[Rfam]
Purine riboswitch aptamer: a 102-nucleotide sequence from Haloplasma contractile.
Lineage of the source: Bacteria > Bacillati > Mycoplasmatota > Haloplasma > Haloplasma contractile.
Nucleotides: 102
Base pairs, nucleotide, nucleotide: 019087020086021085022084023083024082025081031047032046033045034044058078059077060076061075062074063073064072
Number, partner (000 for none) and nucleotide at each position: 001000g002000u003000a004000g005000u006000c007000g008000a009000a010000a011000u012000u013000g014000a015000u016000u017000a018000c019087a020086c021085u022084c023083g024082u025081a026000u027000a028000u029000c030000c031047u032046c033045g034044g035000u036000g037000a038000u039000a040000u041000g042000g043000u044034c045033c046032g047031a048000a049000a050000g051000u052000a053000u054000c055000u056000a057000g058078c059077c060076c061075g062074a063073a064072g065000c066000c067000g068000u069000a070000a071000a072064u073063u074062u075061c076060g077059g078058g079000a080000c081025u082024a083023c084022g085021a086020g087019u088000u089000a090000u091000u092000c093000a094000c095000g096000u097000g098000c099000a100000u101000u102000u